Overview
A member of the RNA family "mir-459 microRNA precursor family" from Ameiurus melas, 80 nucleotides long. Taxonomically the source falls in Ameiurus (Eukaryota, Eumetazoa, Actinopterygii, Characiphysae). The family's consensus secondary structure was predicted with RNAalifold.
Nucleotides: 080
Base pairs, nucleotide, nucleotide: 011070012069013068014067015066016065017064018063019062021060022059023058024057025056029054030053031052032051033050034049035048037047038046
Number, partner (000 for none) and nucleotide at each position: 001000c002000c003000u004000a005000c006000u007000g008000c009000u010000c011070u012069c013068a014067g015066u016065a017064a018063c019062a020000a021060g022059g023058a024057u025056u026000c027000a028000u029054c030053c031052u032051g033050u034049u035048a036000u037047a038046a039000a040000a041000c042000a043000a044000a045000a046038u047037u048035u049034g050033a051032c052031a053030g054029g055000a056025a057024a058023u059022c060021u061000c062019u063018g064017u065016u066015g067014c068013u069012g070011g071000g072000g073000u074000a075000a076000a077000g078000g079000a080000u